[Rfam]
Shown here is a 135-nucleotide sequence from Thinocorus orbignyianus, a member of the family "Small nucleolar RNA SNORA55". Taxonomically the source falls in Thinocorus (Eukaryota, Metazoa, Teleostomi, Archosauria). From the family's description: ACA55 is a member of the H/ACA class of snoRNA that guide the sites of modification of uridines to pseudouridines. The family's RNA type in Rfam is H/ACA-box small nucleolar RNA.
RNA sequence: GCAUCUGAAUCUUUCCAGCUUCUUGCAAUGUAGUGCUGGACUUGGGAAGCCACGAUGCAACAGGAAAGCAGAGGAAAUCCAGACAAAGCUCCCUUUCACUACAGUGGGACUUGUCUCUACGCCUUUGCAACAUUU
Numbered sequence: 001g002c003a004u005c006u007g008a009a010u011c012u013u014u015c016c017a018g019c020u021u022c023u024u025g026c027a028a029u030g031u032a033g034u035g036c037u038g039g040a041c042u043u044g045g046g047a048a049g050c051c052a053c054g055a056u057g058c059a060a061c062a063g064g065a066a067a068g069c070a071g072a073g074g075a076a077a078u079c080c081a082g083a084c085a086a087a088g089c090u091c092c093c094u095u096u097c098a099c100u101a102c103a104g105u106g107g108g109a110c111u112u113g114u115c116u117c118u119a120c121g122c123c124u125u126u127g128c129a130a131c132a133u134u135u
Stems, first nucleotide, its partner, number of pairs: 001058005013047006021039002068128006081116006088110001096107003